Background
Rfam assigns this 521-nucleotide RNA sequence from Saccharomyces kudriavzevii to the family "Fungal signal recognition particle RNA". On this family, see Wild et al., Curr Opin Struct Biol 2002: "Towards the structure of the mammalian signal recognition particle". Rfam classes the family as a non-coding RNA gene. The match comes from Rfam's covariance-model search (141 bits). The family's consensus secondary structure is taken from published work. Lineage of the source: Eukaryota > Opisthokonta > Fungi > Saccharomycetales > Saccharomyces kudriavzevii.
RNA sequence: AGGCUGUAAUGGCUUUUCGGUGGGAUGGGAUACAUUGGGAAUUCUGGCCGAGGAACAAAUCCUUCCUCGCGGCUAGACACGGAUUGCACGCCUUUCGGCAAGGGAUAGUUUUCUAUUCCGCACCGUGCCCUGUUGUGGCAAUCGUCUUUCUCCCGUCGUCAAUUUGUCCCCGGGCAGAACUGUCUGCUCGGAGGCGGGGGAGUCCUAUCUGUAGUGUCCCGGCUUUAAUAAAUCGAUCUUUGCGGGCAGCCCGUUGGCAGGAGGCGUGAGGAAUCCGUCUCUCUGUCUGGUGCGGCAAGGUAGUUGUGGGUCCCUUUGGGGCUCCACCUUCACCGCUGUUAGGGGAGUUUUAUCCAGCGUCAGCAAAGGUGACCCGUGAUGGAGGCGGCCGGGAUAGCACAUAUCAGUCGGAUAAUCGUGCAAGUUGAUCGUUUCGGCGAUUCAAGUUGGCGGUGCCAUCAGGAUUUACUCGCACAUUGUGCCAUUCCCUCGGGGAUGGUUGUGUGUUCUGAACCACAUUU
Numbered sequence: 001a002g003g004c005u006g007u008a009a010u011g012g013c014u015u016u017u018c019g020g021u022g023g024g025a026u027g028g029g030a031u032a033c034a035u036u037g038g039g040a041a042u043u044c045u046g047g048c049c050g051a052g053g054a055a056c057a058a059a060u061c062c063u064u065c066c067u068c069g070c071g072g073c074u075a076g077a078c079a080c081g082g083a084u085u086g087c088a089c090g091c092c093u094u095u096c097g098g099c100a101a102g103g104g105a106u107a108g109u110u111u112u113c114u115a116u117u118c119c120g121c122a123c124c125g126u127g128c129c130c131u132g133u134u135g136u137g138g139c140a141a142u143c144g145u146c147u148u149u150c151u152c153c154c155g156u157c158g159u160c161a162a163u164u165u166g167u168c169c170c171c172g173g174g175c176a177g178a179a180c181u182g183u184c185u186g187c188u189c190g191g192a193g194g195c196g197g198g199g200g201a202g203u204c205c206u207a208u209c210u211g212u213a214g215u216g217u218c219c220c221g222g223c224u225u226u227a228a229u230a231a232a233u234c235g236a237u238c239u240u241u242g243c244g245g246g247c248a249g250c251c252c253g254u255u256g257g258c259a260g261g262a263g264g265c266g267u268g269a270g271g272a273a274u275c276c277g278u279c280u281c282u283c284u285g286u287c288u289g290g291u292g293c294g295g296c297a298a299g300g301u302a303g304u305u306g307u308g309g310g311u312c313c314c315u316u317u318g319g320g321g322c323u324c325c326a327c328c329u330u331c332a333c334c335g336c337u338g339u340u341a342g343g344g345g346a347g348u349u350u351u352a353u354c355c356a357g358c359g360u361c362a363g364c365a366a367a368g369g370u371g372a373c374c375c376g377u378g379a380u381g382g383a384g385g386c387g388g389c390c391g392g393g394a395u396a397g398c399a400c401a402u403a404u405c406a407g408u409c410g411g412a413u414a415a416u417c418g419u420g421c422a423a424g425u426u427g428a429u430c431g432u433u434u435c436g437g438c439g440a441u442u443c444a445a446g447u448u449g450g451c452g453g454u455g456c457c458a459u460c461a462g463g464a465u466u467u468a469c470u471c472g473c474a475c476a477u478u479g480u481g482c483c484a485u486u487c488c489c490u491c492g493g494g495g496a497u498g499g500u501u502g503u504g505u506g507u508u509c510u511g512a513a514c515c516a517c518a519u520u521u
Base pairs, nucleotide, nucleotide: 001015002014003013004012020517021516022515023514028509029508030507031506032505033504034503037471038470039469040466041465155454156453157452158451159450160449161448162447163446164445165444166443172189173188174187175186176185177184178183207408208407210406211405214400215399216398217397218393219392220391221390222389223388224387237383238382239381240379241378243376244375245374246373251294252292253291254290255289256287257286258285260282261281262280263279264278265277266276268275269274325371326370327369328368329367330366335364336363337362338361344355345354346353